[Rfam]
Glycine riboswitch aptamer: an 86-nucleotide RNA sequence from Sulfitobacter sp. THAF37. The pairing is the family consensus, mapped onto this sequence.
RNA sequence: GCAUCCGUCACGGGAGAAUCGGAUCAUCCGAUGCCGAAGGAGCAACCGCCCCGGAAACUCUCAGGCACAGGGACCGUGCCGGAUAC
Dot-bracket structure: .....((.(((((.....((((.....)))).(((((..(((...((.....))...))))).))).......))))).)).....

A search with the family's covariance model found it, with a score of 60 bits. This family represents the bacterial glycine riboswitch. NCBI's taxonomy places the organism under Bacteria, Pseudomonadati, Pseudomonadota, Rhodobacterales, Sulfitobacter.